RNA sequence: GCUGGGACCAGUUAGGUCCAGUCGUGGGCAAAAGAAAUCCUUUUUUGUCCACUCUUGCAGUCUUCCUAGAGCAAAGUGGAGGUCUCUGUCUGCUUUAGCACAGCCAACUAAACCAGAUCGUUCCCCUCCUUACAGG
Numbered sequence: 001g002c003u004g005g006g007a008c009c010a011g012u013u014a015g016g017u018c019c020a021g022u023c024g025u026g027g028g029c030a031a032a033a034g035a036a037a038u039c040c041u042u043u044u045u046u047g048u049c050c051a052c053u054c055u056u057g058c059a060g061u062c063u064u065c066c067u068a069g070a071g072c073a074a075a076g077u078g079g080a081g082g083u084c085u086c087u088g089u090c091u092g093c094u095u096u097a098g099c100a101c102a103g104c105c106a107a108c109u110a111a112a113c114c115a116g117a118u119c120g121u122u123c124c125c126c127u128c129c130u131u132a133c134a135g136g
Stems, first nucleotide, its partner, number of pairs: 004066003009060001011058002024052006034044003078129005086120001088118003092114001094112005
A member of the RNA family "Small Cajal body specific RNA 3" from Mystacornis crossleyi, 136 nucleotides long. From the family's description: scaRNAs are a specific class of small nuclear RNAs which localise to the Cajal bodies and guide the modification of RNA polymerase II transcribed spliceosomal RNAs U1, U2, U4, U5 and U12. Its Rfam clan is "SCARNA3 clan". The match comes from Rfam's covariance-model search (105 bits). The family's RNA type in Rfam is small Cajal body RNA. NCBI's taxonomy places the organism under Eukaryota, Telluraves, Australaves, Sylvioidea, Mystacornis.